[Rfam]
RNA: Group II catalytic intron D1-D4-1
RNA sequence: UAAGCGUCGUUGUGAGAUGACGUUGAACGGCAGGAAGUCAGCAGAAGCCAUAGUACUUUGCAUCUCGCGAAGGAAGGGC
Numbered sequence: 001u002a003a004g005c006g007u008c009g010u011u012g013u014g015a016g017a018u019g020a021c022g023u024u025g026a027a028c029g030g031c032a033g034g035a036a037g038u039c040a041g042c043a044g045a046a047g048c049c050a051u052a053g054u055a056c057u058u059u060g061c062a063u064c065u066c067g068c069g070a071a072g073g074a075a076g077g078g079c
Stems, first nucleotide, its partner, number of pairs: 001025002004023008038045002047079003056072006